The family of this 84-nucleotide RNA sequence from Chlorocebus sabaeus is "mir-548 microRNA precursor family". It scores 93 bits against the family's covariance model.
RNA sequence: UAUUAUGUUGGUGCAAAAGUAAUUGUGGUUUUUGCCAUUAAAAGUACUGGCAAAAGCCACAGUUACUUUUGCACCAAUGUAAUA
Numbered sequence: 001u002a003u004u005a006u007g008u009u010g011g012u013g014c015a016a017a018a019g020u021a022a023u024u025g026u027g028g029u030u031u032u033u034g035c036c037a038u039u040a041a042a043a044g045u046a047c048u049g050g051c052a053a054a055a056g057c058c059a060c061a062g063u064u065a066c067u068u069u070u071g072c073a074c075c076a077a078u079g080u081a082a083u084a
Stems, first nucleotide, its partner, number of pairs: 001084037039046002
The base pairs follow the family's consensus structure, which was predicted with WAR.